A member of the RNA family "Glycine riboswitch aptamer" from Bordetella sp. N, 83 nucleotides long.
RNA sequence: CAAUCUGGAGAGCGACGCAAUGCGUCCACCGAAGGGGAACCGCCUGCAUGGCGGUUGAAACUCUCAGGUCACAGGACAGAUGG
Number, nucleotide and partner (000 for none) at each position: 001c083002a000003a081004u080005c079006u078007g077008g000009a000010g000011a000012g000013c000014g026015a025016c024017g023018c000019a000020a000021u000022g000023c017024g016025u015026c014027c000028a069029c068030c067031g065032a064033a000034g000035g063036g062037g061038a000039a000040c000041c000042g055043c054044c053045u000046g000047c000048a000049u000050g000051g000052c000053g044054g043055u042056u000057g000058a000059a000060a000061c037062u036063c035064u032065c031066a000067g030068g029069u028070c000071a000072c000073a000074g000075g000076a000077c007078a006079g005080a004081u003082g000083g001